U11 spliceosomal RNA: a 126-nucleotide sequence from Abrus precatorius. It scores 51 bits against the family's covariance model. Its family is annotated with U11 snRNP, mRNA 5'-splice site recognition and pre-mRNA 5'-splice site binding in the Gene Ontology. The family's RNA type in Rfam is spliceosomal small nuclear RNA. The organism belongs to Abrus, within Eukaryota.
RNA sequence: AGAAAGGGUCAGUUGGCUAAAUAUGCCACGUUCACGCUUGUUGGGGAAUGCUGUAUGGCUAUCAAGGCAAAUGGCUGACACAUUUUCUGGAAAUUAAUAGGGUUGGCUCGCUCAGCCGACCUUCAU
Numbered sequence: 001a002g003a004a005a006g007g008g009u010c011a012g013u014u015g016g017c018u019a020a021a022u023a024u025g026c027c028a029c030g031u032u033c034a035c036g037c038u039u040g041u042u043g044g045g046g047a048a049u050g051c052u053g054u055a056u057g058g059c060u061a062u063c064a065a066g067g068c069a070a071a072u073g074g075c076u077g078a079c080a081c082a083u084u085u086u087c088u089g090g091a092a093a094u095u096a097a098u099a100g101g102g103u104u105g106g107c108u109c110g111c112u113c114a115g116c117c118g119a120c121c122u123u124c125a126u
Stems, first nucleotide, its partner, number of pairs: 008079005014028004029050005035044001037043001051074004056069002099122002102120007